[Rfam]
RNA sequence: AAAGUGGGCUGGGCAAUCGCGGGGGUUUUUAUCCUCGAGGAACGUCCGGACUCCAUAGGGCAGGAUAGCGGCUAACAGCCGUCCGGUUGCGCAAGCGGCCGAGGAACAGGGCCACAGAGACGAGACUGCGGCGUGGGCAUGCAUGUGCACUGAUACGGCAACUUCCGUAUGGCAUUGCCGCAAGGCAAUAACGCAGCAGGGUGAAACGCGGUAACCUCUAUCCGGAGCAACAUCAAAUAGGCAUGUGUCUGGUUCUGCCAGGAAGGGCGGCUCGUCCAAACAUGCGGGUAGAUGGCUAGAAUGCAUCAGCAAUGAUGCGUCCAGAGGAAUGAUUGCCAACCAGUUUACUGGUUUACAGAAUCCGGCUUAUAGGCUCACUUUGUCA
Number, nucleotide and partner (000 for none) at each position: 001a381002a380003a379004g378005u377006g376007g375008g374009c373010u372011g370012g337013g336014c335015a334016a333017u332018c331019g000020c037021g036022g035023g034024g033025g032026u031027u000028u000029u000030u000031a026032u025033c024034c023035u022036c021037g020038a000039g000040g000041a000042a368043c000044g366045u000046c365047c364048g363049g362050a361051c227052u226053c225054c224055a000056u000057a000058g273059g272060g271061c270062a000063g223064g222065a221066u220067a219068g082069c081070g080071g079072c078073u000074a000075a000076c000077a000078g072079c071080c070081g069082u068083c103084c101085g100086g099087u098088u097089g096090c095091g000092c000093a000094a000095g090096c089097g088098g087099c086100c085101g084102a000103g083104g218105a217106a000107c000108a000109g216110g215111g212112c211113c210114a000115c000116a000117g000118a000119g000120a000121c000122g000123a000124g000125a000126c185127u184128g181129c180130g179131g178132c177133g176134u000135g000136g173137g000138c000139a000140u000141g000142c000143a000144u000145g000146u000147g000148c000149a000150c000151u000152g000153a000154u000155a000156c000157g000158g000159c000160a000161a000162c000163u000164u000165c000166c000167g000168u000169a000170u000171g000172g000173c136174a000175u000176u133177g132178c131179c130180g129181c128182a000183a000184g127185g126186c000187a000188a000189u000190a000191a000192c000193g000194c000195a000196g000197c000198a000199g000200g000201g000202u000203g000204a000205a000206a000207c000208g000209c000210g113211g112212u111213a000214a000215c110216c109217u105218c104219u067220a066221u065222c064223c063224g054225g053226a052227g051228c000229a000230a000231c294232a293233u292234c291235a000236a000237a000238u000239a000240g000241g285242c284243a283244u282245g281246u280247g000248u000249c000250u000251g000252g000253u000254u000255c000256u000257g000258c000259c000260a000261g000262g000263a000264a000265g277266g276267g275268c274269g000270g061271c060272u059273c058274g268275u267276c266277c265278a000279a000280a246281c245282a244283u243284g242285c241286g000287g000288g000289u000290a000291g234292a233293u232294g231295g000296c000297u000298a000299g000300a000301a320302u319303g318304c317305a316306u315307c314308a313309g000310c000311a000312a000313u308314g307315a306316u305317g304318c303319g302320u301321c000322c000323a000324g000325a000326g000327g000328a000329a000330u000331g018332a017333u016334u015335g014336c013337c012338a000339a000340c000341c000342a000343g000344u000345u000346u000347a000348c000349u000350g000351g000352u000353u000354u000355a000356c000357a000358g000359a000360a000361u050362c049363c048364g047365g046366c044367u000368u042369a000370u011371a000372g010373g009374c008375u007376c006377a005378c004379u003380u002381u001382g000383u000384c000385a000
RNA: Bacterial RNase P class A